The record is an 80-nucleotide RNA from Enhydra lutris, which matches "Small nucleolar RNA U105B" in Rfam. The literature on the family includes a 2006 paper in Nucleic Acids Res by Yang et al., "snoSeeker: an advanced computational package for screening of guide and orphan snoRNA genes in the human genome". Gene Ontology terms of the family: RNA processing and nucleolus. Pairs were carried over by alignment from the consensus structure, which was predicted with WAR. The match comes from Rfam's covariance-model search (65 bits).
[Rfam]
RNA sequence: UCACGUGCUGCUGACGACCGGGCUGCAGCUGAGGCGCUGUGAUUGCUCGGUCUCAAAGUAAACUCUCUGACGCCCUGUGG
Numbered sequence: 001u002c003a004c005g006u007g008c009u010g011c012u013g014a015c016g017a018c019c020g021g022g023c024u025g026c027a028g029c030u031g032a033g034g035c036g037c038u039g040u041g042a043u044u045g046c047u048c049g050g051u052c053u054c055a056a057a058g059u060a061a062a063c064u065c066u067c068u069g070a071c072g073c074c075c076u077g078u079g080g
Base pairs, nucleotide, nucleotide: 005075007073008072011020013018029050030049031048032047033046